Record summary: Shown here is an 86-nucleotide RNA sequence from Oxalobacteraceae bacterium CAVE-383, a member of the family "sRNA-Xcc1". The family has 74 seed sequences and 421 matches in Rfam 15.1. The match comes from Rfam's covariance-model search (69 bits).
RNA sequence: GGCCGGGUAGCGUGCAGUUAUACAAGACCUUCGGGAAAAGCUGCAGACCGUUUUCUAGCGGCUAUCAAGUACCCGGCCACCCUCUC
Dot-bracket structure: (((((((((...((((.((........((....))...)).))))(.((((......)))).)......)))))))))........
Numbered sequence: 001g002g003c004c005g006g007g008u009a010g011c012g013u014g015c016a017g018u019u020a021u022a023c024a025a026g027a028c029c030u031u032c033g034g035g036a037a038a039a040g041c042u043g044c045a046g047a048c049c050g051u052u053u054u055c056u057a058g059c060g061g062c063u064a065u066c067a068a069g070u071a072c073c074c075g076g077c078c079a080c081c082c083u084c085u086c
Stems, first nucleotide, its partner, number of pairs: 001078009013045004018040002028035002046063001048061004